[Rfam]
The record is a 125-nucleotide sequence from Pseudomonas aeruginosa, which matches "Burkholderia RNA 11" in Rfam. Co-purified with Hfq, expression confirmed by Northern blot. Rfam links the family to the GO term protein binding. NCBI's taxonomy places the organism under Bacteria, Pseudomonadota, Gammaproteobacteria, Pseudomonadales, Pseudomonas aeruginosa. The literature on the family includes a 2013 paper in Genomics by Ramos et al., "Experimental identification of small non-coding regulatory RNAs in the opportunistic human pathogen Burkholderia cenocepacia J2315". It is annotated as a small RNA.
RNA sequence: GCAUCCUCCGCCUGGGGCUCGGCCAGCGCCCGGCGGUCUCGCGCUCGCUGGUGGGCAACUCCUGGUUCUGGUUCCUCGGCGCGGUCUACCUGACGCAGAUCCCGACCUUCGCCAAGGAAUGGCUG
Numbered sequence: 001g002c003a004u005c006c007u008c009c010g011c012c013u014g015g016g017g018c019u020c021g022g023c024c025a026g027c028g029c030c031c032g033g034c035g036g037u038c039u040c041g042c043g044c045u046c047g048c049u050g051g052u053g054g055g056c057a058a059c060u061c062c063u064g065g066u067u068c069u070g071g072u073u074c075c076u077c078g079g080c081g082c083g084g085u086c087u088a089c090c091u092g093a094c095g096c097a098g099a100u101c102c103c104g105a106c107c108u109u110c111g112c113c114a115a116g117g118a119a120u121g122g123c124u125g
Base pairs, nucleotide, nucleotide: 010052011051012050014048017045019043021038022037023036024035054124055123056122058120060118061117062116063115065113070102071101074098077095078094080092081091083090084089